The family of this 150-nucleotide sequence from Thermosynechococcus vestitus is "Group II catalytic intron D1-D4-7". The source organism's lineage runs through Bacteria, Cyanobacteriota, Cyanophyceae, Thermosynechococcus and Thermosynechococcus vestitus. For this family Rfam cites "Group II introns: structure and catalytic versatility of large natural ribozymes" (Lehmann and Schmidt, Crit Rev Biochem Mol Biol, 2003). Its family is annotated with Group II intron splicing in the Gene Ontology. Rfam's curators put it in the seed alignment.
RNA sequence: CCGGUUGUUCCCCCAACCGUAGCCUAAGGAGGCAUGCGUGACUGGUAACGGUCAGGUAUGAAGCCCUCCCGACAAUGAAGCCCGAACCGGAAGGUUGGAGCCGAAUCCGUGAGGAGGAAGCAACUUCACCAGCGUCAGGUGAUAGGGAGC
Numbered sequence: 001c002c003g004g005u006u007g008u009u010c011c012c013c014c015a016a017c018c019g020u021a022g023c024c025u026a027a028g029g030a031g032g033c034a035u036g037c038g039u040g041a042c043u044g045g046u047a048a049c050g051g052u053c054a055g056g057u058a059u060g061a062a063g064c065c066c067u068c069c070c071g072a073c074a075a076u077g078a079a080g081c082c083c084g085a086a087c088c089g090g091a092a093g094g095u096u097g098g099a100g101c102c103g104a105a106u107c108c109g110u111g112a113g114g115a116g117g118a119a120g121c122a123a124c125u126u127c128a129c130c131a132g133c134g135u136c137a138g139g140u141g142a143u144a145g146g147g148a149g150c
Stems, first nucleotide, its partner, number of pairs: 002019006028069005033060005039054006083098001085096003100121002107114002126142005